Shown here is a 177-nucleotide RNA from Candidatus Protofrankia californiensis, a member of the family "c-di-AMP riboswitch aptamer (ydaO/yuaA leader)".
RNA sequence: UCGGGCGGCACGCCGAAUCCUGCCCCGGCCGACGGAAAUCAAACCAAUGGCAGGAUCGGGGGAACCACUUUUCGGGCGUCGCGUAUCAGACGUCCUCGGGGUGAAGCCGCAGAACGCGGCCGGGCAGUCCCAGCCCGAACCCGACAGCUAACCUCGCAGGCGUGGGGAAGGGCAUCA
Number, nucleotide and partner (000 for none) at each position: 001u000002c000003g000004g000005g000006c000007g000008g000009c000010a000011c162012g161013c160014c159015g000016a000017a000018u055019c054020c053021u052022g051023c050024c049025c000026c000027g000028g000029c000030c000031g000032a000033c000034g000035g000036a000037a000038a000039u000040c000041a000042a000043a000044c000045c000046a000047a000048u000049g024050g023051c022052a021053g020054g019055a018056u000057c156058g155059g154060g153061g152062g000063a000064a000065c000066c098067a000068c000069u000070u000071u000072u000073c000074g000075g000076g000077c000078g000079u000080c000081g000082c000083g000084u000085a000086u000087c000088a000089g000090a000091c000092g000093u000094c000095c000096u000097c000098g066099g142100g141101g140102u000103g000104a000105a000106g000107c119108c118109g117110c116111a000112g000113a000114a000115c000116g110117c109118g108119g107120c000121c000122g136123g135124g134125c133126a000127g000128u000129c000130c000131c000132a000133g125134c124135c123136c122137g000138a000139a000140c101141c100142c099143g000144a000145c000146a000147g000148c000149u000150a000151a000152c061153c060154u059155c058156g057157c000158a000159g014160g013161c012162g011163u000164g000165g000166g000167g000168a000169a000170g000171g000172g000173c000174a000175u000176c000177a000
Its family is annotated with cyclic-di-AMP binding and regulation of gene expression in the Gene Ontology.